Description
Bacteroidetes FopS (family of paralogous sRNAs): a 71-nucleotide sequence from Prevotella sp. CAG:1320. The match comes from Rfam's covariance-model search (75 bits). The family's RNA type in Rfam is small RNA. Its family is annotated with sRNA-mediated gene silencing in the Gene Ontology. On this family, see Ruttiger et al., Nat Commun 2025: "The global RNA-binding protein RbpB is a regulator of polysaccharide utilization in Bacteroides thetaiotaomicron".

RNA sequence: GUGUUUUUCAUGGUAUUAGAUUAUUAAGGUUAGGAAGAUUGGUUAUCGUGACGAUAACCAAUUUUUUUUGU
Numbered sequence: 001g002u003g004u005u006u007u008u009c010a011u012g013g014u015a016u017u018a019g020a021u022u023a024u025u026a027a028g029g030u031u032a033g034g035a036a037g038a039u040u041g042g043u044u045a046u047c048g049u050g051a052c053g054a055u056a057a058c059c060a061a062u063u064u065u066u067u068u069u070g071u
Base pairs, nucleotide, nucleotide: 041059042058043057044056045055046054047053